Shown here is a 348-nucleotide RNA from Pseudomonas flexibilis, a member of the family "Bacterial RNase P class A".
About the family: Ribonuclease P (RNase P) is a ubiquitous endoribonuclease, found in archaea, bacteria and eukarya as well as chloroplasts and mitochondria.
The match comes from Rfam's covariance-model search (342 bits).
Lineage of the source: Bacteria > Gammaproteobacteria > Pseudomonadales > Pseudomonadaceae > Pseudomonas.
RNA sequence: AGAGUCGGCCGGGCAGUCGCCGCCUUCGCAAGAAGGGGGAGGAAAGUCCGGGCUCCGCAGGGCAGAGUGCCAGGUAACGCCUGGGAGGCGCGAGCCUACGGAAAGUGCCACAGAAAACUACCGCCUAAGCGCGCAAGCGCCGGUAAGGGUGAAAAGGUGCGGUAAGAGCGCACCGCACGGCUGGUAACAGUCCGUGGCUAGGCAAACCCCACUCGGAGCAAGACCAAAUAGGGAUCCAUUGGCGUGGCCCGCGCUGGAUCCGGGUAGGUUGCUAGAGGUGGUCAGUGAUGGCCAUCGUAGAUGAAUGACUGUCCUCGACAGAACCCGGCUUACAGGCUGACUCUCUCU
Numbered sequence: 001a002g003a004g005u006c007g008g009c010c011g012g013g014c015a016g017u018c019g020c021c022g023c024c025u026u027c028g029c030a031a032g033a034a035g036g037g038g039g040a041g042g043a044a045a046g047u048c049c050g051g052g053c054u055c056c057g058c059a060g061g062g063c064a065g066a067g068u069g070c071c072a073g074g075u076a077a078c079g080c081c082u083g084g085g086a087g088g089c090g091c092g093a094g095c096c097u098a099c100g101g102a103a104a105g106u107g108c109c110a111c112a113g114a115a116a117a118c119u120a121c122c123g124c125c126u127a128a129g130c131g132c133g134c135a136a137g138c139g140c141c142g143g144u145a146a147g148g149g150u151g152a153a154a155a156g157g158u159g160c161g162g163u164a165a166g167a168g169c170g171c172a173c174c175g176c177a178c179g180g181c182u183g184g185u186a187a188c189a190g191u192c193c194g195u196g197g198c199u200a201g202g203c204a205a206a207c208c209c210c211a212c213u214c215g216g217a218g219c220a221a222g223a224c225c226a227a228a229u230a231g232g233g234a235u236c237c238a239u240u241g242g243c244g245u246g247g248c249c250c251g252c253g254c255u256g257g258a259u260c261c262g263g264g265u266a267g268g269u270u271g272c273u274a275g276a277g278g279u280g281g282u283c284a285g286u287g288a289u290g291g292c293c294a295u296c297g298u299a300g301a302u303g304a305a306u307g308a309c310u311g312u313c314c315u316c317g318a319c320a321g322a323a324c325c326c327g328g329c330u331u332a333c334a335g336g337c338u339g340a341c342u343c344u345c346u347c348u
Base pairs, nucleotide, nucleotide: 001344002343003342004341005340006339007338008337009336010335011333012313013312014311015310016309017308018307020039021038023036024035025034026033027032044331045330046329048328049327050326051325052324053218054217055216056215060250061249062248063247065214066213067212068211069210070084071083072082073081074080085099086097087096088095089094100209101208105207106206107203108202109201121148122147123144124143125142129140130139131138132137156174157173158172159171160170161169175198176196177195178194179193180192181190182189183188222270223269224268225267232261233260234259235258236257237256241255242254243253244252245251277296278295279294280293281292282291283290284289